The family of this 69-nucleotide RNA from Strongylocentrotus purpuratus is "tRNA". NCBI's taxonomy places the organism under Eukaryota, Eleutherozoa, Echinacea, Echinidea, Strongylocentrotus. The sequence is in the family's curated seed alignment.
RNA sequence: GAUUAAAGUAGUUUAAGAAAAGCAUCAGCCUGUGGAGCUGAAGACGCCAGUAAACUCUGGCUUAAAUCC
Numbered sequence: 001g002a003u004u005a006a007a008g009u010a011g012u013u014u015a016a017g018a019a020a021a022g023c024a025u026c027a028g029c030c031u032g033u034g035g036a037g038c039u040g041a042a043g044a045c046g047c048c049a050g051u052a053a054a055c056u057c058u059g060g061c062u063u064a065a066a067u068c069c
Base pairs, nucleotide, nucleotide: 001068002067003066004065006063007062011023012022013021014020025041026040027039028038029037046061047060048059049058050057